[Rfam]
RNA sequence: CGAGCCGGGCGGGCGGUCGCGUCGGGACGUAUGGUCCCGCCGAGGAACGUCCGGGCUCCGCAGGGCAGGGUGGUGGCUAACGGCCACCCGGGGUGACCCGCGAGACAGUGCCACAGAAAACAGACCGCCGGGGUCCGUCAGGACUCCCGGUAAGGGUGAAACGGUGGUGUAAGAGACCACCAGCGCCCAGGGUGACCUGGGCGGCUCGGUAAACCUCACCCGGAGCAAGGUCAAGAGGGGCCGUCGGCCGACGGCCCUGCGCGGACGUUCGAGGGCGGCCCGCCCGAGUCCGCGGGUAGACCGCUGGAGGCUGCCGGCAACGGCAGCCCUAGAUGGAUGGCCGCCGCCUCGGCCGGCCGCGAGGCCCCGAGGCACAGAACCCGGCGUACAGCCCGGCUCGUCUG
Numbered sequence: 001c002g003a004g005c006c007g008g009g010c011g012g013g014c015g016g017u018c019g020c021g022u023c024g025g026g027a028c029g030u031a032u033g034g035u036c037c038c039g040c041c042g043a044g045g046a047a048c049g050u051c052c053g054g055g056c057u058c059c060g061c062a063g064g065g066c067a068g069g070g071u072g073g074u075g076g077c078u079a080a081c082g083g084c085c086a087c088c089c090g091g092g093g094u095g096a097c098c099c100g101c102g103a104g105a106c107a108g109u110g111c112c113a114c115a116g117a118a119a120a121c122a123g124a125c126c127g128c129c130g131g132g133g134u135c136c137g138u139c140a141g142g143a144c145u146c147c148c149g150g151u152a153a154g155g156g157u158g159a160a161a162c163g164g165u166g167g168u169g170u171a172a173g174a175g176a177c178c179a180c181c182a183g184c185g186c187c188c189a190g191g192g193u194g195a196c197c198u199g200g201g202c203g204g205c206u207c208g209g210u211a212a213a214c215c216u217c218a219c220c221c222g223g224a225g226c227a228a229g230g231u232c233a234a235g236a237g238g239g240g241c242c243g244u245c246g247g248c249c250g251a252c253g254g255c256c257c258u259g260c261g262c263g264g265a266c267g268u269u270c271g272a273g274g275g276c277g278g279c280c281c282g283c284c285c286g287a288g289u290c291c292g293c294g295g296g297u298a299g300a301c302c303g304c305u306g307g308a309g310g311c312u313g314c315c316g317g318c319a320a321c322g323g324c325a326g327c328c329c330u331a332g333a334u335g336g337a338u339g340g341c342c343g344c345c346g347c348c349u350c351g352g353c354c355g356g357c358c359g360c361g362a363g364g365c366c367c368c369g370a371g372g373c374a375c376a377g378a379a380c381c382c383g384g385c386g387u388a389c390a391g392c393c394c395g396g397c398u399c400g401u402c403u404g
Base pairs, nucleotide, nucleotide: 001400002399003398004397005396006395007394008393009392010391011389012345013344014343015342016341017340018339020042021041023039024038025037026036027035028034047387048386049385051384052383053382054381055380056225057224058223059222063281064280065279066278068221069220070219071218072217073087074086075085076084077083088102089100090099091098092097103216104215108214109213110210111209112208125155126154127151128150129149131148132147133144134143135142136141163181164180165179166178167177168176183205184203185202186201187200188199189198190197191196229302230301231300232299261293262292263291264290265289266288273285274284275283276282309328310327311326312325313324314323315322316321
RNA: Bacterial RNase P class A
Organism: Streptomyces aidingensis